This 46-nucleotide RNA sequence from Corallorhiza bulbosa belongs to the Rfam family "Plastid-rpoB 5UTR RNA". The base pairs follow the family's consensus structure, which was predicted with LocARNA. Rfam's curators put it in the seed alignment. Plastid rpoB is a non-coding RNA (ncRNA) recognised in plastids. It was found in the 5 prime untranslated region (5UTR) of a chloroplast-encoded RNA polymerase subunit (rpoB) in plastids, suggesting a posible cis-regulatory function.

Nucleotides: 046
Stems, first nucleotide, its partner, number of pairs: 003045006
Number, partner (000 for none) and nucleotide at each position: 001000u002000g003045c004044u005043g006042u007041u008040c009000c010000a011000g012000a013000u014000u015000c016000u017000u018000c019000u020000u021000u022000u023000u024000u025000a026000u027000c028000u029000c030000a031000u032000u033000u034000c035000a036000u037000a038000g039000a040008g041007a042006g043005c044004a045003g046000a
It is annotated as a cis-regulatory element.
The organism belongs to Corallorhiza, within Eukaryota.